Small nucleolar RNA SNORD67: a 114-nucleotide sequence from Scophthalmus maximus. Its family is annotated with RNA processing and nucleolus in the Gene Ontology. A reference for the family is Huttenhofer et al. (2001), "RNomics: an experimental approach that identifies 201 candidates for novel, small, non-messenger RNAs in mouse", EMBO J. The organism belongs to Scophthalmus, within Eukaryota.
RNA sequence: CGUGACAGUGAUGAGUUGCACUAUUAGGUGGGCUGCUGAUUGCAGUGGCACGGCGGACCCGUCCUGACAACCUGUGGUGACAACCCAUUGUGCACAGGGGCCAUCUGAGUCACC
Numbered sequence: 001c002g003u004g005a006c007a008g009u010g011a012u013g014a015g016u017u018g019c020a021c022u023a024u025u026a027g028g029u030g031g032g033c034u035g036c037u038g039a040u041u042g043c044a045g046u047g048g049c050a051c052g053g054c055g056g057a058c059c060c061g062u063c064c065u066g067a068c069a070a071c072c073u074g075u076g077g078u079g080a081c082a083a084c085c086c087a088u089u090g091u092g093c094a095c096a097g098g099g100g101c102c103a104u105c106u107g108a109g110u111c112a113c114c
Base pairs, nucleotide, nucleotide: 004113007110024067025066026065027064028062029061030060031059033056034055035054041050042049043048
It is annotated as a C/D-box small nucleolar RNA. Rfam 15.1 lists 781 matches to the family in 618 species. Pairs were carried over by alignment from the consensus structure. Rfam's curators write: snoRNA HBII-166 belongs to the C/D family of snoRNAs.